[Rfam]
RNA sequence: GGUCAAUGAUGACUAGUAAAAGGUCUGAGUGCACAAGAGAAUUGCACUCCCAUUACCCUUUCAGCUCCCAACAGUCUCUCUUUGUCCCAUCGUGCUAUAGCAGUGCUGUGAUUGGGGGAAAGGCUGCUGACAAUGAAGGAUAAGUUCAGUGCCUGUUAUCCACAGUGUAAGGAAGCAUGGCCCUGAAUGUCAUCCAACAGAACCAAUUAAGGAGUUUAGGGUGUUGGGGUGUCUUGAUUUGUGGUGUGUGUGAUCUCAAGUUUUCAAGCUGAGACC
Numbered sequence: 001g002g003u004c005a006a007u008g009a010u011g012a013c014u015a016g017u018a019a020a021a022g023g024u025c026u027g028a029g030u031g032c033a034c035a036a037g038a039g040a041a042u043u044g045c046a047c048u049c050c051c052a053u054u055a056c057c058c059u060u061u062c063a064g065c066u067c068c069c070a071a072c073a074g075u076c077u078c079u080c081u082u083u084g085u086c087c088c089a090u091c092g093u094g095c096u097a098u099a100g101c102a103g104u105g106c107u108g109u110g111a112u113u114g115g116g117g118g119a120a121a122g123g124c125u126g127c128u129g130a131c132a133a134u135g136a137a138g139g140a141u142a143a144g145u146u147c148a149g150u151g152c153c154u155g156u157u158a159u160c161c162a163c164a165g166u167g168u169a170a171g172g173a174a175g176c177a178u179g180g181c182c183c184u185g186a187a188u189g190u191c192a193u194c195c196a197a198c199a200g201a202a203c204c205a206a207u208u209a210a211g212g213a214g215u216u217u218a219g220g221g222u223g224u225u226g227g228g229g230u231g232u233c234u235u236g237a238u239u240u241g242u243g244g245u246g247u248g249u250g251u252g253a254u255c256u257c258a259a260g261u262u263u264u265c266a267a268g269c270u271g272a273g274a275c276c
Base pairs, nucleotide, nucleotide: 001276002275003274004273037257038256039255040254042252047229048228049227050226052224053223065214066213067212068211069129070128072126073125074124075123086115087114089112090111091110092109093108094107095105139194140193141192143190152179154177155176157175159173160172161171
Dot-bracket structure: ((((................................((((.(....((((.((...........((((((.((((..........((.(((((((.........).)))))).)).......)))).)).........(((.(........(.((.(.(((.........))).))).)..........).)))................))))........)).))))......................).))))...............))))